[Rfam]
RNA sequence: AGCCUGUGAUGAACUGCAUUAAUUUCUGACACCUCGUAUGAAAACUGCACGCGCAGUCUGAUUACAUUGCAGUGCUGAGGCUU
Numbered sequence: 001a002g003c004c005u006g007u008g009a010u011g012a013a014c015u016g017c018a019u020u021a022a023u024u025u026c027u028g029a030c031a032c033c034u035c036g037u038a039u040g041a042a043a044a045c046u047g048c049a050c051g052c053g054c055a056g057u058c059u060g061a062u063u064a065c066a067u068u069g070c071a072g073u074g075c076u077g078a079g080g081c082u083u
Stems, first nucleotide, its partner, number of pairs: 001082004044057005
The record is an 83-nucleotide sequence from Jaculus jaculus, which matches "Small nucleolar RNA SNORD60" in Rfam. Clan: SNORD60 clan. It scores 101 bits against the family's covariance model. Pairs were carried over by alignment from the consensus structure, which was predicted with PFOLD. NCBI's taxonomy places the organism under Eukaryota, Deuterostomia, Euarchontoglires, Dipodoidea, Jaculus.